Annotation
This 98-nucleotide RNA sequence from Alkalibacterium sp. AK22 belongs to the Rfam family "Purine riboswitch aptamer". The match comes from Rfam's covariance-model search (68 bits).
[Rfam]
RNA sequence: GAAUUGAAAAAAGAGUUGUCUAAUAUAAUUUAGCGAUAUGGGCUAAAGUUUCUACCAGUCACCUUAAAAGACUGACUAUUAGAUUGAGCACUUAUACU
Numbered sequence: 001g002a003a004u005u006g007a008a009a010a011a012a013g014a015g016u017u018g019u020c021u022a023a024u025a026u027a028a029u030u031u032a033g034c035g036a037u038a039u040g041g042g043c044u045a046a047a048g049u050u051u052c053u054a055c056c057a058g059u060c061a062c063c064u065u066a067a068a069a070g071a072c073u074g075a076c077u078a079u080u081a082g083a084u085u086g087a088g089c090a091c092u093u094a095u096a097c098u
Base pairs, nucleotide, nucleotide: 018084019083020082021081022080023079024078025077029047030046031045032044033043034042056074057073058072059071060070
The family's consensus secondary structure is taken from published work.